A member of the RNA family "6S / SsrS RNA" from Budvicia aquatica, 184 nucleotides long. E. coli 6S RNA was the first non coding RNA to be sequenced, but its function was unknown until recently. A search with the family's covariance model found it, with a score of 130 bits. Taxonomically the source falls in Budvicia (Bacteria, Pseudomonadati, Gammaproteobacteria, Enterobacterales).
RNA sequence: AAUUCUCUGAGGUGUGCGUUAUCGGGCCAGUCCCCUGAGCCGAUAUUUCAUACCAAACGAAUGUGGAGCCCUACCGCCUGUGAGCAUGCCCGGUCCGUCCGGGAAGCCUGAUGGCAGUAGAUUCGCGUUCACCUUGAACCAAGGGUUCAAGGGUUACAGCCCGCGACGGCACCUCGGAGAUCUC
Dot-bracket structure: ...((((((((((((.(((............(((.((((((.................(((.(((((..(.(((.(((.....((...(((((.....)))))..)).....))).)))).))))).))).............)))))).)))............)))))))))))))))....